[Rfam]
RNA sequence: GAAGUUUUCCUCGGCAGUUAACUGCAGCCGUAUUUCUAAAACUUCGGUAGUUAACUGCCGAGGGGCAU
Numbered sequence: 001g002a003a004g005u006u007u008u009c010c011u012c013g014g015c016a017g018u019u020a021a022c023u024g025c026a027g028c029c030g031u032a033u034u035u036c037u038a039a040a041a042c043u044u045c046g047g048u049a050g051u052u053a054a055c056u057g058c059c060g061a062g063g064g065g066c067a068u
Base pairs, nucleotide, nucleotide: 008064009063011061012060013059014058015057016056017055018054019053020052021051022050023049024048025047
Shown here is a 68-nucleotide RNA from Medicago truncatula, a member of the family "MIR2629 microRNA precursor family". Taxonomically the source falls in Medicago (Eukaryota, Embryophyta, Euphyllophyta, eudicotyledons). Gene Ontology terms of the family: RISC complex and miRNA-mediated post-transcriptional gene silencing. The match comes from Rfam's covariance-model search (62 bits).